The record is a 54-nucleotide RNA sequence from Conger conger, which matches "UnaL2 LINE 3' element" in Rfam. The match comes from Rfam's covariance-model search (57 bits). By type it is a cis-regulatory element. The eel long interspersed element (LINE) UnaL2 and its partner short interspersed element (SINE) share a conserved 3' tail containing a stem-loop that is critical for their retrotransposition.

RNA sequence: ACUUUGCACUGUUGUACGUUGCUCUGGAUAAGAGCGUCUGCCAAAUGCCAUUAA
Numbered sequence: 001a002c003u004u005u006g007c008a009c010u011g012u013u014g015u016a017c018g019u020u021g022c023u024c025u026g027g028a029u030a031a032g033a034g035c036g037u038c039u040g041c042c043a044a045a046u047g048c049c050a051u052u053a054a
Base pairs, nucleotide, nucleotide: 013043014041015040016039020036021035022034023033024032025031
Dot-bracket structure: ............((((...((((((.....))))))..))).)...........